[Rfam]
RNA sequence: CAAUGCCCUUAGGUAUCUGGUGGCUAGAAUUAAACAUUUGUUUCUGGUCACUUCGUUUUUCUAGGGCAUAAACUAAAUCACUUACAGGUCUUGCGACACAGUUUGCUUUAGUUCCAUAAGCUUACUGUUACUUUAACCCUGUUUACAUUU
Numbered sequence: 001c002a003a004u005g006c007c008c009u010u011a012g013g014u015a016u017c018u019g020g021u022g023g024c025u026a027g028a029a030u031u032a033a034a035c036a037u038u039u040g041u042u043u044c045u046g047g048u049c050a051c052u053u054c055g056u057u058u059u060u061c062u063a064g065g066g067c068a069u070a071a072a073c074u075a076a077a078u079c080a081c082u083u084a085c086a087g088g089u090c091u092u093g094c095g096a097c098a099c100a101g102u103u104u105g106c107u108u109u110a111g112u113u114c115c116a117u118a119a120g121c122u123u124a125c126u127g128u129u130a131c132u133u134u135a136a137c138c139c140u141g142u143u144u145a146c147a148u149u150u
Stems, first nucleotide, its partner, number of pairs: 004068006019052011034041001084142004098128005105121003

A member of the RNA family "Small nucleolar RNA F1/F2/snoR5a" from Raphanus sativus, 150 nucleotides long. The organism belongs to Raphanus, within Eukaryota. By type it is an H/ACA-box small nucleolar RNA. About the family: This family contains F1, F2 and snoR5a sequences, all of which are members of the the H/ACA class of snoRNA that guide the sites of modification of uridines to pseudouridines. Rfam links the family to the GO terms nucleolus and RNA processing.